[Rfam]
RNA sequence: AUCAAAUAAGGGCAAACUAUCCGAGAGGGUAGGACGCAAAGUUGUAAGCCUUAAAGUGUAAACGAAGGCGGUUUAACUGCAAUC
Number, nucleotide and partner (000 for none) at each position: 001a000002u000003c000004a000005a000006a000007u000008a000009a000010g000011g000012g037013c036014a000015a000016a000017c032018u031019a030020u029021c028022c027023g000024a000025g000026a000027g022028g021029g020030u019031a018032g017033g000034a000035c000036g013037c012038a000039a000040a078041g077042u076043u075044g000045u000046a073047a072048g069049c068050c067051u000052u000053a000054a000055a000056g000057u000058g000059u000060a000061a000062a000063c000064g000065a000066a000067g050068g049069c048070g000071g000072u047073u046074u000075a043076a042077c041078u040079g000080c000081a000082a000083u000084c000
RNA: c-di-GMP-I riboswitch aptamer
Organism: Lachnospiraceae bacterium G41